[Rfam]
RNA sequence: ACAGGGAUUGCCGAAAACCUGGGAAAGAGUAGGCG
Numbered sequence: 001a002c003a004g005g006g007a008u009u010g011c012c013g014a015a016a017a018c019c020u021g022g023g024a025a026a027g028a029g030u031a032g033g034c035g
Stems, first nucleotide, its partner, number of pairs: 002021004010034003
RNA: DUF805b RNA